[Rfam]
Rfam assigns this 103-nucleotide RNA sequence from Oryzias melastigma to the family "mir-454 microRNA precursor family". The base pairs follow the family's consensus structure, which was predicted with RNAalifold. It scores 70 bits against the family's covariance model. The source organism's lineage runs through Eukaryota, Opisthokonta, Chordata, Atherinomorphae and Oryzias.
RNA sequence: UCUCCAGAGCCUUGCAGAUGGGACCCUAUCGAUGUUGCCUCUGCUCUCAGCAGCAUUUCUCAGUAGUGCAAUAUUGCUUAUAGGGUGUCGUCUGUGAGGGAUU
Numbered sequence: 001u002c003u004c005c006a007g008a009g010c011c012u013u014g015c016a017g018a019u020g021g022g023a024c025c026c027u028a029u030c031g032a033u034g035u036u037g038c039c040u041c042u043g044c045u046c047u048c049a050g051c052a053g054c055a056u057u058u059c060u061c062a063g064u065a066g067u068g069c070a071a072u073a074u075u076g077c078u079u080a081u082a083g084g085g086u087g088u089c090g091u092c093u094g095u096g097a098g099g100g101a102u103u
Stems, first nucleotide, its partner, number of pairs: 020089002023086007030076009041066005